[Rfam]
RNA sequence: CGGCGAUGUCUCCUAUCCGUUAUCUAUGGAGGCACUCGAUUAUGCUGUGGGAUGCAUUUAUGUAUCCUUAGACGCACGAUGUCGUCAAAAGCAUGAUGUGAGGAUGGGUUAGAUGCCCA
Numbered sequence: 001c002g003g004c005g006a007u008g009u010c011u012c013c014u015a016u017c018c019g020u021u022a023u024c025u026a027u028g029g030a031g032g033c034a035c036u037c038g039a040u041u042a043u044g045c046u047g048u049g050g051g052a053u054g055c056a057u058u059u060a061u062g063u064a065u066c067c068u069u070a071g072a073c074g075c076a077c078g079a080u081g082u083c084g085u086c087a088a089a090a091g092c093a094u095g096a097u098g099u100g101a102g103g104a105u106g107g108g109u110u111a112g113a114u115g116c117c118c119a
Stems, first nucleotide, its partner, number of pairs: 001019003007034007035102004039097008049068008071086004105119005
Dot-bracket structure: [[[...(((((((...]]]........)))))))((((((((((((..((((((((....))))))))..((((........))))...)))))))).))))..(((((.....)))))